Overview
Streptomyces-metK RNA: a 114-nucleotide RNA from Actinacidiphila guanduensis. By type it is a small RNA. The match comes from Rfam's covariance-model search (68 bits).
RNA sequence: ACGAGAUGCCAGGCCCGCCGGCGCGACGCGGACGAUAAGCUUGCCGCGGAGCGCCGGGCGCAGCCCUGAGCACUCCGCAACGAUCGAGCCAGCAGCCGCUGCAACCCCAGGGAG
Numbered sequence: 001a002c003g004a005g006a007u008g009c010c011a012g013g014c015c016c017g018c019c020g021g022c023g024c025g026a027c028g029c030g031g032a033c034g035a036u037a038a039g040c041u042u043g044c045c046g047c048g049g050a051g052c053g054c055c056g057g058g059c060g061c062a063g064c065c066c067u068g069a070g071c072a073c074u075c076c077g078c079a080a081c082g083a084u085c086g087a088g089c090c091a092g093c094a095g096c097c098g099c100u101g102c103a104a105c106c107c108c109a110g111g112g113a114g
Base pairs, nucleotide, nucleotide: 048076049075050074051073053071055068056067057066058065090101091100092099093098